[Rfam]
RNA sequence: ACUAUGACUCACCUCUAGAGUCCUCUAUUCGAAGACGUUUGGACGGCCAAACCACUCACGA
Numbered sequence: 001a002c003u004a005u006g007a008c009u010c011a012c013c014u015c016u017a018g019a020g021u022c023c024u025c026u027a028u029u030c031g032a033a034g035a036c037g038u039u040u041g042g043a044c045g046g047c048c049a050a051a052c053c054a055c056u057c058a059c060g061a
Stems, first nucleotide, its partner, number of pairs: 006022005029061003037052006
Dot-bracket structure: .....(((((.......)))))......(((.....((((((....))))))......)))

Shown here is a 61-nucleotide RNA, a member of the family "MDR-NUDIX RNA".